[Rfam]
Background: HDV ribozyme from F. prausnitzii: a 66-nucleotide sequence from Caenorhabditis auriculariae. The family's consensus secondary structure is taken from published work. The family has 48 seed sequences and 3,803 matches in Rfam 15.1. On this family, see Webb et al., Science 2009: "Widespread occurrence of self-cleaving ribozymes".
RNA sequence: CCCCUUCAAGUGCCACCUCUACGCGGUGAUGGGGAGGCAACGUCUUUUUAGGCGGCUAACGGUACA
Numbered sequence: 001c002c003c004c005u006u007c008a009a010g011u012g013c014c015a016c017c018u019c020u021a022c023g024c025g026g027u028g029a030u031g032g033g034g035a036g037g038c039a040a041c042g043u044c045u046u047u048u049u050a051g052g053c054g055g056c057u058a059a060c061g062g063u064a065c066a
Base pairs, nucleotide, nucleotide: 001034002033003032004031006029007028015027016026017025041054042053043052044051045050